[Rfam]
RNA sequence: GCGUCGGCUUAGCUCAGUGGUUACUUCGUUGUCAAACUCUCGCAGUUUCGCCAAACUCUACCUUCUCCGGAGGGUCGAACCACGGGCGCUGUCCGGCGUUUUU
Numbered sequence: 001g002c003g004u005c006g007g008c009u010u011a012g013c014u015c016a017g018u019g020g021u022u023a024c025u026u027c028g029u030u031g032u033c034a035a036a037c038u039c040u041c042g043c044a045g046u047u048u049c050g051c052c053a054a055a056c057u058c059u060a061c062c063u064u065c066u067c068c069g070g071a072g073g074g075u076c077g078a079a080c081c082a083c084g085g086g087c088g089c090u091g092u093c094c095g096g097c098g099u100u101u102u103u
Base pairs, nucleotide, nucleotide: 002098003097004096005095006094007093012087013086014085015084017083018082019081020080025079026078027077028076
Shown here is a 103-nucleotide RNA sequence from Conger conger, a member of the family "Vault RNA". Rfam classes the family as a non-coding RNA gene. Rfam's curators write: This family of RNAs are found as part of the enigmatic vault ribonucleoprotein complex. The complex consists of a major vault protein (MVP), two minor vault proteins (VPARP and TEP1), and several small untranslated RNA molecules. It has been suggested that the vault complex is involved in drug resistance. Rfam 15.1 lists 2,873 matches to the family in 431 species. A search with the family's covariance model found it, with a score of 68 bits.